Annotation: Rfam assigns this 131-nucleotide sequence from Erinaceus europaeus to the family "Small nucleolar RNA SNORA44". A reference for the family is Huttenhofer et al. (2001), "RNomics: an experimental approach that identifies 201 candidates for novel, small, non-messenger RNAs in mouse", EMBO J. Rfam describes the family as follows. ACA44 is a member of the H/ACA class of snoRNA that guide the sites of modification of uridines to pseudouridines. It is annotated as an H/ACA-box small nucleolar RNA.
RNA sequence: CAGCAUGUUUCCAAGGUUUAGGACUAGUAGUAGCCAUGGGAUCUCCAACUGAAUGCAAGAAUAACUUGGAGAGACUUUGACAGAACACUUCAGCAUAAUAUGUGUAGCUGUCACUCACCUCUCCUGUAUUU
Numbered sequence: 001c002a003g004c005a006u007g008u009u010u011c012c013a014a015g016g017u018u019u020a021g022g023a024c025u026a027g028u029a030g031u032a033g034c035c036a037u038g039g040g041a042u043c044u045c046c047a048a049c050u051g052a053a054u055g056c057a058a059g060a061a062u063a064a065c066u067u068g069g070a071g072a073g074a075c076u077u078u079g080a081c082a083g084a085a086c087a088c089u090u091c092a093g094c095a096u097a098a099u100a101u102g103u104g105u106a107g108c109u110g111u112c113a114c115u116c117a118c119c120u121c122u123c124c125u126g127u128a129u130u131u
Stems, first nucleotide, its partner, number of pairs: 011039002016035001018033003068124006083111001086104003

The family is grouped with related families in Rfam's "SNORA44 clan".